[Rfam]
RNA sequence: UGCUUGAUGAUGACUCUCUCCUAUGAUUGCUUUGUAAUAAGUAAAGCAAACUGAGCAAAACAUUUCACCGGCACUGAAAGCA
Number, nucleotide and partner (000 for none) at each position: 001u082002g081003c080004u079005u078006g000007a000008u000009g000010a000011u000012g000013a000014c000015u000016c000017u000018c000019u000020c000021c000022u000023a000024u000025g000026a000027u000028u000029g000030c000031u000032u000033u000034g000035u000036a000037a000038u000039a000040a000041g000042u000043a000044a000045a000046g000047c000048a000049a000050a000051c000052u000053g000054a000055g000056c000057a000058a000059a000060a000061c000062a000063u000064u000065u000066c000067a000068c000069c000070g000071g000072c000073a000074c000075u000076g000077a000078a005079a004080g003081c002082a001

A member of the RNA family "Small nucleolar RNA SNORD102" from Thamnophis sirtalis, 82 nucleotides long. A search with the family's covariance model found it, with a score of 52 bits. The source organism's lineage runs through Eukaryota, Eumetazoa, Unidentata, Natricidae and Thamnophis. By type it is a C/D-box small nucleolar RNA.